The record is a 91-nucleotide sequence from Sulfurospirillum cavolei, which matches "TPP riboswitch aptamer (THI element)" in Rfam.
RNA sequence: GAAAGCCGUUAGGGGUGCCGAUUUUGGCUGAGAAAAUACCCUUGAACCUGAUCCGGAUAAUACCGGCGUAGGCAAGCAUCAAAAAUUCCUC
Numbered sequence: 001g002a003a004a005g006c007c008g009u010u011a012g013g014g015g016u017g018c019c020g021a022u023u024u025u026g027g028c029u030g031a032g033a034a035a036a037u038a039c040c041c042u043u044g045a046a047c048c049u050g051a052u053c054c055g056g057a058u059a060a061u062a063c064c065g066g067c068g069u070a071g072g073c074a075a076g077c078a079u080c081a082a083a084a085a086u087u088c089c090u091c
Stems, first nucleotide, its partner, number of pairs: 008077003011042004016036001017028004047072004053066004

Taxonomically the source falls in Sulfurospirillum (Bacteria, Pseudomonadati, Campylobacterota, Sulfurospirillaceae).